[Rfam]
RNA sequence: AGGCGUGAUAGAGGCGCGGCCUUCAUCAGUAGCUCCGCAUGCAUGUCCGGAAAGACGCGGGGCGAAAGGGACGGACCGCCGAAGGGCGCAGCGGUUUCCGACGCUGCGAGCCUGGGACGCAGGACAAUAUCCUGCGGACUGCCGCCGAUGCGGAUGAGCUAUCAGGGCC
Numbered sequence: 001a002g003g004c005g006u007g008a009u010a011g012a013g014g015c016g017c018g019g020c021c022u023u024c025a026u027c028a029g030u031a032g033c034u035c036c037g038c039a040u041g042c043a044u045g046u047c048c049g050g051a052a053a054g055a056c057g058c059g060g061g062g063c064g065a066a067a068g069g070g071a072c073g074g075a076c077c078g079c080c081g082a083a084g085g086g087c088g089c090a091g092c093g094g095u096u097u098c099c100g101a102c103g104c105u106g107c108g109a110g111c112c113u114g115g116g117a118c119g120c121a122g123g124a125c126a127a128u129a130u131c132c133u134g135c136g137g138a139c140u141g142c143c144g145c146c147g148a149u150g151c152g153g154a155u156g157a158g159c160u161a162u163c164a165g166g167g168c169c
Stems, first nucleotide, its partner, number of pairs: 006164006016079004021073001023071002032063007083113003087108007114140002118136007142153004
The family of this 169-nucleotide RNA from Slackia exigua is "Lysine riboswitch aptamer". A search with the family's covariance model found it, with a score of 79 bits. The source organism's lineage runs through Bacteria, Bacillati, Coriobacteriia, Eggerthellaceae and Slackia exigua.